Overview:
A member of the RNA family "MIR408 microRNA precursor family" from Trifolium subterraneum, 141 nucleotides long. Rfam 15.1 lists 299 matches to the family in 186 species. A search with the family's covariance model found it, with a score of 77 bits.

RNA sequence: AGUUGAUUGUGUUGAAGAGCUGGGAAGAGUCAGAGCAUGAAUGCAUCUAUAGACAGAAAAGAGAGAAUGAGAGGAAGAAUCAAUCUGUUGUGGCUACGCUCAUGCACUGCCUCUUCCCUGGCUCUCGAUGUUUCUUUACUU
Numbered sequence: 001a002g003u004u005g006a007u008u009g010u011g012u013u014g015a016a017g018a019g020c021u022g023g024g025a026a027g028a029g030u031c032a033g034a035g036c037a038u039g040a041a042u043g044c045a046u047c048u049a050u051a052g053a054c055a056g057a058a059a060a061g062a063g064a065g066a067a068u069g070a071g072a073g074g075a076a077g078a079a080u081c082a083a084u085c086u087g088u089u090g091u092g093g094c095u096a097c098g099c100u101c102a103u104g105c106a107c108u109g110c111c112u113c114u115u116c117c118c119u120g121g122c123u124c125u126c127g128a129u130g131u132u133u134c135u136u137u138a139c140u141u
Stems, first nucleotide, its partner, number of pairs: 017124003020120001022118005028112002031109003035105006045095001